The record is a 298-nucleotide RNA sequence from Sinocyclocheilus rhinocerous, which matches "Nuclear RNase P" in Rfam. NCBI's taxonomy places the organism under Eukaryota, Metazoa, Bilateria, Actinopterygii, Sinocyclocheilus. The family is grouped with related families in Rfam's "RNaseP clan". Ribonuclease P (RNase P) is a ubiquitous endoribonuclease, found in archaea, bacteria and eukarya as well as chloroplasts and mitochondria.
RNA sequence: GGGGGGAAGUACACUGUAGAGGUUAUUAACUGUGUUGAUCACUCAUCCAUUCAUUUCCGGGAAGGUCUGAGACAAGAACCAAUCGCUGUCUUCACAGGACAUCAUCUGAACAGAUGAGCGAGCGCACAAGGAAGAUGGGUCAGAAUGCGGUGUUCACGCACAAGACGGUGGAACGCAGAAUGGCGAACCAACUGAUGCGAACCCCGGUGACUUCGAAACACUCGCGGCUGGCGCAAUGAGUUCAAUGUGUGAACUGGCGCAAGAUGCUAGAACCCAAUUCAGACUACUCUCCUACCAC
Dot-bracket structure: ((..(((..[.[[[....((((.........(.((.....)).).........)))).........(((((.....(.((......(((((.....)))))((((((....))))))(((((.(..............(((...................................................................))).......).))))))).)...................]]].]((((((.....)))))).......))))).......)))..))..